[Rfam]
The record is a 61-nucleotide RNA from Propioniferax innocua, which matches "Actino-pnp RNA" in Rfam. By type it is a cis-regulatory element. A search with the family's covariance model found it, with a score of 56 bits. NCBI's taxonomy places the organism under Bacteria, Bacillati, Actinomycetes, Propionibacteriales, Propioniferax.
RNA sequence: GUGGGUCCUCGGUAGUGGCCUGCGGGGCGAACGAACCCGCCGGCCUCGAUCGAAGACCACC
Dot-bracket structure: (..((((.(((((...((((.(((((.........))))).))))...))))).))))..)